[Rfam]
RNA sequence: GUUGGAUAUGGCGAUAUUUAUCCACAGACAUUGCUUGGUAAAAUAGUGGGCGGGCUUUGCUGCAUCGCAGGUGUGCUGGUGAUCGCUUUACCAAUUCCUAUCAUUGUCAAUAAC
Numbered sequence: 001g002u003u004g005g006a007u008a009u010g011g012c013g014a015u016a017u018u019u020a021u022c023c024a025c026a027g028a029c030a031u032u033g034c035u036u037g038g039u040a041a042a043a044u045a046g047u048g049g050g051c052g053g054g055c056u057u058u059g060c061u062g063c064a065u066c067g068c069a070g071g072u073g074u075g076c077u078g079g080u081g082a083u084c085g086c087u088u089u090a091c092c093a094a095u096u097c098c099u100a101u102c103a104u105u106g107u108c109a110a111u112a113a114c
Stems, first nucleotide, its partner, number of pairs: 001114002004111001008107004013102004020095002037077004049063001
The family of this 114-nucleotide RNA sequence from Hemibagrus wyckioides is "Potassium channel RNA editing signal".
Rfam 15.1 lists 14,095 matches to the family in 1,000 species.
This family represents a group of sequences related to the human potassium channel Kv1.1 hairpin element which directs the efficient modification of an adenosine to inosine by an adenosine deaminase acting on RNA (ADAR). The ADAR modification causes an isoleucine/valine recoding event which lies in the ion-conducting pore of the potassium channel. It is thought that this editing event targets the process of fast inactivation and allows a more rapid recovery from inactivation at negative potentials.
It scores 83 bits against the family's covariance model.